[Rfam]
RNA sequence: CAACCAUUAUCGAGAGGUAAUGCUGAACGCACAGAAGUCAGCAGAGGUCAUAGUAGUCGAGAGAUGAAGGAC
Number, nucleotide and partner (000 for none) at each position: 001c025002a024003a000004c000005c022006a021007u020008u019009a018010u017011c016012g000013a000014g000015a000016g011017g010018u009019a008020a007021u006022g005023c000024u002025g001026a000027a000028c000029g000030c000031a000032c000033a000034g000035a000036a000037g000038u045039c044040a000041g000042c000043a000044g039045a038046g000047g072048u071049c070050a000051u000052a000053g000054u000055a000056g065057u064058c063059g000060a000061g000062a000063g058064a057065u056066g000067a000068a000069g000070g049071a048072c047
Record summary: This 72-nucleotide RNA sequence from Cuneatibacter caecimuris belongs to the Rfam family "Group II catalytic intron D1-D4-1". Lineage of the source: Bacteria > Bacillati > Bacillota > Lachnospiraceae > Cuneatibacter. Rfam describes the family as follows. Group II introns are found in rRNA, tRNA and mRNA of organelles in fungi, plants and protists, and also in mRNA in bacteria. The base pairs follow the family's consensus structure.